[Rfam]
RNA sequence: UUGCUUCAGGGAUUAACAAGUUCCCGAUAUGCAUCCACCCUUCUCACUUUGUCAGCAAAAUCUUUUGGUUUGUUUUUUUGCUGAUCAUUAAAGGUUGGGACAUUU
Numbered sequence: 001u002u003g004c005u006u007c008a009g010g011g012a013u014u015a016a017c018a019a020g021u022u023c024c025c026g027a028u029a030u031g032c033a034u035c036c037a038c039c040c041u042u043c044u045c046a047c048u049u050u051g052u053c054a055g056c057a058a059a060a061u062c063u064u065u066u067g068g069u070u071u072g073u074u075u076u077u078u079u080g081c082u083g084a085u086c087a088u089u090a091a092a093g094g095u096u097g098g099g100a101c102a103u104u105u
Stems, first nucleotide, its partner, number of pairs: 034099004039094001051085010